[Rfam]
mir-8799 microRNA precursor family: a 93-nucleotide RNA from Vulpes vulpes. The match comes from Rfam's covariance-model search (56 bits).
RNA sequence: AGGGGAUUGCCGGAUCCUGGGCUGUGCCCCCGGCGCCCUGGACUCUGGGGCCUGUGCCACUGGAAUUGCUCUCCCAGGGCCAAGCACCCCCCU
Numbered sequence: 001a002g003g004g005g006a007u008u009g010c011c012g013g014a015u016c017c018u019g020g021g022c023u024g025u026g027c028c029c030c031c032g033g034c035g036c037c038c039u040g041g042a043c044u045c046u047g048g049g050g051c052c053u054g055u056g057c058c059a060c061u062g063g064a065a066u067u068g069c070u071c072u073c074c075c076a077g078g079g080c081c082a083a084g085c086a087c088c089c090c091c092c093u
Base pairs, nucleotide, nucleotide: 001093002092003091004090005089009085010084012081013080016078017077019074020073021072024069025068026067028063030062032058033057034056035055036054040052043050044049
The source organism's lineage runs through Eukaryota, Opisthokonta, Euteleostomi, Tetrapoda and Vulpes.
Its Rfam clan is "mir-8791 microRNA precursor clan".